[Rfam]
RNA sequence: AAGAUAUAAUUUCAUACGACUCAUAUAAUUUUGGGAAUAUGGCCCAUAAGUUUCUACCGGAUGACCACCGUAAUCGUCCGACUAUGAGUGACAGCGAGCGCGCC
Numbered sequence: 001a002a003g004a005u006a007u008a009a010u011u012u013c014a015u016a017c018g019a020c021u022c023a024u025a026u027a028a029u030u031u032u033g034g035g036a037a038u039a040u041g042g043c044c045c046a047u048a049a050g051u052u053u054c055u056a057c058c059g060g061a062u063g064a065c066c067a068c069c070g071u072a073a074u075c076g077u078c079c080g081a082c083u084a085u086g087a088g089u090g091a092c093a094g095c096g097a098g099c100g101c102g103c104c
Stems, first nucleotide, its partner, number of pairs: 019089007029049002032046004058080007
RNA: Purine riboswitch aptamer
Organism: Paenibacillus sp. 32O-W